Rfam assigns this 97-nucleotide sequence from Anopheles gambiae to the family "mir-276 microRNA precursor family". On this family, see Skalsky et al., BMC Genomics 2010: "Identification of microRNAs expressed in two mosquito vectors, Aedes albopictus and Culex quinquefasciatus".

RNA sequence: ACAAAGACAACCCACCAGCGAGGUAUAGAGUUCCUAUGUGCCCACUAGGCCGUUCGCUACUCAUAGGAACUUCAUACCGUGCUCUUGGAUUGCUCUC
Dot-bracket structure: ...........(((..((((.(((((.((((((((((.........................)))))))))).))))).))))..))).........